[Rfam]
RNA sequence: GCGAUCGCGCUGUUGACACUUGAUUCACAGCGGAGGAACCAGUUCCUAGGGGCGAAUCUCAGACGGCUGAGAGAGACACCUUCCAGUCUUAGCCCGUCAGCUAACUCCGUCGGCAAUGGGAGGAGUG
Numbered sequence: 001g002c003g004a005u006c007g008c009g010c011u012g013u014u015g016a017c018a019c020u021u022g023a024u025u026c027a028c029a030g031c032g033g034a035g036g037a038a039c040c041a042g043u044u045c046c047u048a049g050g051g052g053c054g055a056a057u058c059u060c061a062g063a064c065g066g067c068u069g070a071g072a073g074a075g076a077c078a079c080c081u082u083c084c085a086g087u088c089u090u091a092g093c094c095c096g097u098c099a100g101c102u103a104a105c106u107c108c109g110u111c112g113g114c115a116a117u118g119g120g121a122g123g124a125g126u127g
Stems, first nucleotide, its partner, number of pairs: 001028001030110006040049001050095003058071004074089004
The family of this 127-nucleotide sequence from Leptolyngbya sp. FACHB-36 is "c-di-AMP riboswitch aptamer (ydaO/yuaA leader)". The match comes from Rfam's covariance-model search (60 bits).